Rfam assigns this 148-nucleotide RNA to the family "RT-3 RNA". Rfam classes the family as a small RNA. Rfam's curators put it in the seed alignment.
RNA sequence: AAUCGGCGUACAGCACCGGGGACGUGUCCCCGAAGCGGUGCCGAGGGAAGCAAGCCACAGCAACAGCACCCAUUAGGGUGGAAAGCUGAAAAAUCACGCGUCGGGUGGAGUUUGGUAGGCUGUUAUCAGUUCGAAGAAGUCAGAUCCG
Numbered sequence: 001a002a003u004c005g006g007c008g009u010a011c012a013g014c015a016c017c018g019g020g021g022a023c024g025u026g027u028c029c030c031c032g033a034a035g036c037g038g039u040g041c042c043g044a045g046g047g048a049a050g051c052a053a054g055c056c057a058c059a060g061c062a063a064c065a066g067c068a069c070c071c072a073u074u075a076g077g078g079u080g081g082a083a084a085g086c087u088g089a090a091a092a093a094u095c096a097c098g099c100g101u102c103g104g105g106u107g108g109a110g111u112u113u114g115g116u117a118g119g120c121u122g123u124u125a126u127c128a129g130u131u132c133g134a135a136g137a138a139g140u141c142a143g144a145u146c147c148g
Base pairs, nucleotide, nucleotide: 003044004043005042006041007040008039011038013036014035018031019030020029021028022027046056047055058088059087060086061085067080068079069078070077071076102148103147104146105145106144108141109140111138112137113136118131119130120129121128122127